[Rfam]
RNA sequence: UUACUAUCAAAUCCUAUCUCUACCUCCACGUGGUGAUUGUCGAGAGUUCUUUCUUAAUGAAAAACUGCAGACGGGGAAGA
Dot-bracket structure: .............((.((((.(((.......)))..........((((.((.(.....))).))))......)))).)).
drz-agam-1 ribozyme: an 80-nucleotide sequence from Hermetia illucens.
On this family, see Webb et al., Science 2009: "Widespread occurrence of self-cleaving ribozymes".
The match comes from Rfam's covariance-model search (38 bits).